[Rfam]
RNA: Glycine riboswitch aptamer
Organism: Eubacterium sp. CAG:156
RNA sequence: AGGGUGACAACUGGAGAGUUCUGAUAGCUGAGGUAAACAGUUAUACAGACGCCGAAGGUGUAAGGUGAUAUUUAAACUUUUAGAAGCAUCACUAAUCUCUCAGGCAAAAGGACAGGAGGAAUAUU
Dot-bracket structure: .......(..(((......((((......................)))).(((((..(.(...(...........................)....).))).))).......)))..).......